[Rfam]
RNA: Molybdenum/Tungsten riboswitch aptamer (Moco RNA motif)
RNA sequence: AUAGGAUAUUUUCUACGAGCCCGCUUUCCUAAGGCAGUGCUAUGGGGGCGAGGCCUGGGGCUUAAGACCCCACAGGGUUGUAGGAGAAAUCUUGCAGCCUCCCUGUUAUGGAAAGUAGAAAAAUAGGUUUUAAA
Numbered sequence: 001a002u003a004g005g006a007u008a009u010u011u012u013c014u015a016c017g018a019g020c021c022c023g024c025u026u027u028c029c030u031a032a033g034g035c036a037g038u039g040c041u042a043u044g045g046g047g048g049c050g051a052g053g054c055c056u057g058g059g060g061c062u063u064a065a066g067a068c069c070c071c072a073c074a075g076g077g078u079u080g081u082a083g084g085a086g087a088a089a090u091c092u093u094g095c096a097g098c099c100u101c102c103c104u105g106u107u108a109u110g111g112a113a114a115g116u117a118g119a120a121a122a123a124u125a126g127g128u129u130u131u132a133a134a
Base pairs, nucleotide, nucleotide: 003128011120012119013118014117015116016115019054020053021052025048026047027046028045029044033041034040035039056072057071058070059069060068075100076099077098078097079096080095081094082093083092084091085090101111102110